[Rfam]
RNA sequence: ACUUCCGCGUUGAUUCUCUUGAACUUAGGGAAAACGCUGGAAUUAUAGAUUUGCCUGAUGACACAAAAACGCAGCAAUGGCGUAAGACGUAAUGUGAAAUCAAGCAAUUAGCGGGCUGCGGGUUGCAGCUUGGCCGGCAAAUGGAAUGAGAUCUGGCUACAUAAAAUCAGAGGCUAUUCCCCUACUAAAAGUACUGCUUUCACCACGCUGUGGUUAUUAACCCGGCAAAAGCAGUCUUACCGAAAAUAAUGCGCCCCUAUGCAGGCGACAACCGGGAGGUUGACGACUAUGCGAGAAGACUCGGGGCCAACGGUUUAAUCCGGCCAUAGAGGUUAUUUUGCCCGCAGUUCUGACAAUAA
Dot-bracket structure: ..(((.((.....((((..........))))....)).))).........((((.(((...((((...(((..((....))......)))..))))...))).)))).....(((((((((((.......(((((((.....(((((....(((((..........)))))....))))).........((..(((((((..........................))).)))).)).((((..........(((((........((.(((((....))))).)).................)))))...)))).....))))))).............))))))))))).........